This 104-nucleotide RNA from Clostridium sp. CAG:62 belongs to the Rfam family "S10-Clostridia ribosomal protein leader". Rfam classes the family as a cis-regulatory leader. It scores 68 bits against the family's covariance model. The literature on the family includes a 2020 paper in BMC Microbiol by Eckert and Weinberg, "Discovery of 20 novel ribosomal leader candidates in bacteria and archaea".
RNA sequence: UGAUAGCGAUGAAGCGUGAGGUUGCCACCAUCUGGUGGGUUUUUCCGUGGAGCGAAUGUCAAGAGGCCGAGAUCAGCAAAUUCGGCCGGAAACCCUGACGGCAA
Numbered sequence: 001u002g003a004u005a006g007c008g009a010u011g012a013a014g015c016g017u018g019a020g021g022u023u024g025c026c027a028c029c030a031u032c033u034g035g036u037g038g039g040u041u042u043u044u045c046c047g048u049g050g051a052g053c054g055a056a057u058g059u060c061a062a063g064a065g066g067c068c069g070a071g072a073u074c075a076g077c078a079a080a081u082u083c084g085g086c087c088g089g090a091a092a093c094c095c096u097g098a099c100g101g102c103a104a
Stems, first nucleotide, its partner, number of pairs: 014048003018045004025038005057103004063099001